[Rfam]
A member of the RNA family "MIR8565 microRNA precursor family" from Amborella trichopoda, 156 nucleotides long. Taxonomically the source falls in Amborella (Eukaryota, Magnoliopsida, Amborellales, Amborellaceae).
RNA sequence: CCCCCAUCCAUGUGUGUAGGACCUCAAAGGAUUACCAUUAAAGUUAGCACGGAUCUCUAAAAAAAGUUAUCAUAUAUGUGUGAGACUUGACUUUUCUAGAGAUCCGUACCAACUUUAAUGGUGAUCUUUUGAGGGUCCUACACACAUGGGUGGGGG
Numbered sequence: 001c002c003c004c005c006a007u008c009c010a011u012g013u014g015u016g017u018a019g020g021a022c023c024u025c026a027a028a029g030g031a032u033u034a035c036c037a038u039u040a041a042a043g044u045u046a047g048c049a050c051g052g053a054u055c056u057c058u059a060a061a062a063a064a065a066g067u068u069a070u071c072a073u074a075u076a077u078g079u080g081u082g083a084g085a086c087u088u089g090a091c092u093u094u095u096c097u098a099g100a101g102a103u104c105c106g107u108a109c110c111a112a113c114u115u116u117a118a119u120g121g122u123g124a125u126c127u128u129u130u131g132a133g134g135g136u137c138c139u140a141c142a143c144a145c146a147u148g149g150g151u152g153g154g155g156g
Stems, first nucleotide, its partner, number of pairs: 002155012015142008023133006030126003034122012047109001049107011061095001063094007070083005